Rfam assigns this 87-nucleotide RNA from Heyndrickxia sporothermodurans to the family "BsrC". On this family, see Saito et al., Gene 2008: "Novel small RNA-encoding genes in the intergenic regions of Bacillus subtilis". The base pairs follow the family's consensus structure, which was predicted with CMfinder. The family's RNA type in Rfam is small RNA. A search with the family's covariance model found it, with a score of 78 bits.
[Rfam]
RNA sequence: AUUACCUAAAACAACAAAAGCCCUACCUCUCUUUUGUCCUAACGGCUCCUUGACCGUGCCAGUGUGAAUCAGGCUAUUUAAAGUCAA
Numbered sequence: 001a002u003u004a005c006c007u008a009a010a011a012c013a014a015c016a017a018a019a020g021c022c023c024u025a026c027c028u029c030u031c032u033u034u035u036g037u038c039c040u041a042a043c044g045g046c047u048c049c050u051u052g053a054c055c056g057u058g059c060c061a062g063u064g065u066g067a068a069u070c071a072g073g074c075u076a077u078u079u080a081a082a083g084u085c086a087a
Base pairs, nucleotide, nucleotide: 034067035066036065039062040061042057043056044055045054047052